[Rfam]
The record is a 94-nucleotide sequence from Bacillus salinus, which matches "c-di-GMP-I riboswitch aptamer" in Rfam. The family's consensus secondary structure is taken from published work. The organism belongs to Bacillus, within Bacteria.
RNA sequence: GUUCGAAAAGGGCAAAAUCAUUGAAAAAUGAUGACGCAAAGCUUCAGGGGCUAAGGUCUGUAUUUCUAUGAGACUAUGCUAGCCAGCUGCCGAA
Numbered sequence: 001g002u003u004c005g006a007a008a009a010g011g012g013c014a015a016a017a018u019c020a021u022u023g024a025a026a027a028a029u030g031a032u033g034a035c036g037c038a039a040a041g042c043u044u045c046a047g048g049g050g051c052u053a054a055g056g057u058c059u060g061u062a063u064u065u066c067u068a069u070g071a072g073a074c075u076a077u078g079c080u081a082g083c084c085a086g087c088u089g090c091c092g093a094a
Stems, first nucleotide, its partner, number of pairs: 012037002017032006040088004047084002049080003056074004